[Rfam]
RNA: U7 small nuclear RNA
RNA sequence: GAGUGACACAGCUCUUUUAGAAUUUUUUAUCAGGUUUUUCUGACUUUGUUUGGAAAACCCAC
Dot-bracket structure: ................................(((((.(((((......))))))))))...